[Rfam]
RNA sequence: AUAUAAGUUAAUUAAUCUACUUAUCUGAAUGUGUUUCUGAUGAAAUUGAGAAAAAGCUAGCAAUAGUGACACCAUAUUAUGAGCCUUAAGGGCAAAUGAAGUCAUUAAGGUCCCUGAAAGUAGCUGUAAUG
Numbered sequence: 001a002u003a004u005a006a007g008u009u010a011a012u013u014a015a016u017c018u019a020c021u022u023a024u025c026u027g028a029a030u031g032u033g034u035u036u037c038u039g040a041u042g043a044a045a046u047u048g049a050g051a052a053a054a055a056g057c058u059a060g061c062a063a064u065a066g067u068g069a070c071a072c073c074a075u076a077u078u079a080u081g082a083g084c085c086u087u088a089a090g091g092g093c094a095a096a097u098g099a100a101g102u103c104a105u106u107a108a109g110g111u112c113c114c115u116g117a118a119a120g121u122a123g124c125u126g127u128a129a130u131g
Stems, first nucleotide, its partner, number of pairs: 004060001006058002016043002020039001072123001074121001083111007091103003

Shown here is a 131-nucleotide RNA sequence from Jaculus jaculus, a member of the family "Small nucleolar RNA SNORA33". Rfam classes the family as an H/ACA-box small nucleolar RNA. A search with the family's covariance model found it, with a score of 94 bits. The family's consensus secondary structure was predicted with PFOLD. From the family's description: ACA33 is a member of the H/ACA class of snoRNA that guide the sites of modification of uridines to pseudouridines. Gene Ontology terms of the family: nucleolus and RNA processing.